[Rfam]
T-box leader: a 240-nucleotide sequence from Lactobacillus sp. LL6. Uncharged tRNA acts as the effector for transcription antitermination of genes in the T-box leader family. T-boxes are found upstream of many aminoacyl-tRNA synthetase genes and some amino acid biosynthetic genes usually in Gram-positive bacteria. The anticodon of a specific tRNA base pairs to a specifier sequence within the T-box motif, and the NCCA acceptor tail of the tRNA base pairs to a conserved bulge in the T-box antiterminator hairpin. Rfam 15.1 lists 19,395 matches to the family in 1,923 species. For this family Rfam cites "Interaction between the acceptor end of tRNA and the T box stimulates antitermination in the Bacillus subtilis tyrS gene: a new role for the discriminator base" (Grundy et al., J Bacteriol, 1994). Gene Ontology term of the family: tRNA binding. Rfam classes the family as a cis-regulatory leader.
RNA sequence: AAACACAUCUUGAAAAGCUGAGUAGCUAACUAUUUACUUUUAAAGAGAGGCGAUAUUGUGGUGAAAGUCGUCAAGCAAAUACUAGUGAAUAUGGGCUUGGAAUGAUGACUAUAGGUGACUUUUAGAAGCCUAGAGCGGGUUUGCAGCCGUUAUAAUUGCAGGCUAUUUUUGUAGCUAGUGAGGGUUAUUGCGUGAGCAAUAACUGAAUUAAAGGUGGUAACACGAGCACUCGUCCUUGAU
Number, nucleotide and partner (000 for none) at each position: 001a000002a000003a000004c000005a000006c000007a103008u102009c000010u000011u000012g000013a000014a000015a098016a097017g096018c095019u000020g000021a000022g000023u000024a000025g086026c085027u084028a083029a000030c000031u000032a000033u000034u000035u000036a000037c000038u075039u074040u073041u000042a000043a000044a000045g000046a000047g000048a000049g072050g071051c070052g069053a068054u067055a000056u000057u000058g000059u000060g000061g000062u000063g000064a000065a000066a000067g054068u053069c052070g051071u050072c049073a040074a039075g038076c000077a000078a000079a000080u000081a000082c000083u028084a027085g026086u025087g000088a000089a000090u000091a000092u000093g000094g000095g018096c017097u016098u015099g000100g000101a000102a008103u007104g000105a000106u000107g000108a000109c000110u134111a000112u132113a131114g130115g129116u128117g000118a000119c000120u000121u000122u000123u000124a000125g000126a000127a000128g116129c115130c114131u113132a112133g000134a110135g000136c149137g148138g147139g000140u000141u000142u000143g000144c000145a000146g000147c138148c137149g136150u000151u000152a000153u000154a000155a000156u000157u000158g000159c000160a000161g000162g000163c000164u000165a000166u000167u000168u000169u000170u000171g000172u000173a000174g000175c000176u000177a000178g000179u000180g000181a000182g000183g204184g203185u202186u201187a200188u199189u198190g000191c000192g000193u000194g000195a000196g000197c000198a189199a188200u187201a186202a185203c184204u183205g000206a000207a000208u000209u000210a000211a237212a236213g235214g234215u000216g000217g000218u000219a000220a000221c000222a233223c232224g231225a230226g000227c000228a000229c000230u225231c224232g223233u222234c214235c213236u212237u211238g000239a000240u000